The family of this 101-nucleotide RNA sequence from Thermoactinomyces daqus is "S10-Clostridia ribosomal protein leader". A search with the family's covariance model found it, with a score of 41 bits. The organism belongs to Thermoactinomyces, within Bacteria. The family's RNA type in Rfam is cis-regulatory leader. The family's consensus secondary structure is taken from published work.
RNA sequence: UGAACGCGAUGAAGCGAAAGGUUGCCGACACACCCGGCCCCUUUGCCAUGGCCGGGCGGGAAAUUUUCGCGGAGAAGUUCAUUUGCAAAAAUGAGCGAGAA
Numbered sequence: 001u002g003a004a005c006g007c008g009a010u011g012a013a014g015c016g017a018a019a020g021g022u023u024g025c026c027g028a029c030a031c032a033c034c035c036g037g038c039c040c041c042u043u044u045g046c047c048a049u050g051g052c053c054g055g056g057c058g059g060g061a062a063a064u065u066u067u068c069g070c071g072g073a074g075a076a077g078u079u080c081a082u083u084u085g086c087a088a089a090a091a092u093g094a095g096c097g098a099g100a101a
Base pairs, nucleotide, nucleotide: 014070015069016068018067019066020065021064025059026058027057029055078101079100080099083098084097085096086095